[Rfam]
RNA sequence: UUGGCCCUAAAACGGCCUGAGGUAGAGGGGUUUUAGUCGGUAGGUCCGAGGACUUCUUCCUCGGGAAUCCGACACUACCCAAUCGUACGGACGGCUGGGUAUCUUUUGAAAAUUUCCCCUCUUCCGCGAA
Numbered sequence: 001u002u003g004g005c006c007c008u009a010a011a012a013c014g015g016c017c018u019g020a021g022g023u024a025g026a027g028g029g030g031u032u033u034u035a036g037u038c039g040g041u042a043g044g045u046c047c048g049a050g051g052a053c054u055u056c057u058u059c060c061u062c063g064g065g066a067a068u069c070c071g072a073c074a075c076u077a078c079c080c081a082a083u084c085g086u087a088c089g090g091a092c093g094g095c096u097g098g099g100u101a102u103c104u105u106u107u108g109a110a111a112a113u114u115u116c117c118c119c120u121c122u123u124c125c126g127c128g129a130a
Base pairs, nucleotide, nucleotide: 001130002129004127005126021125022124024122025121027118028117029116036073037072038071039070040069045065046064047063048062049061050060051059052058076101077100078099079098080097081096
The record is a 130-nucleotide RNA sequence from Agrilus planipennis, which matches "R2 RNA element" in Rfam. A search with the family's covariance model found it, with a score of 44 bits. The organism belongs to Agrilus, within Eukaryota. A reference for the family is Ruschak et al. (2004), "Secondary structure models of the 3' untranslated regions of diverse R2 RNAs", RNA. Pairs were carried over by alignment from the consensus structure, which is taken from published work. Rfam 15.1 lists 3,698 matches to the family in 74 species.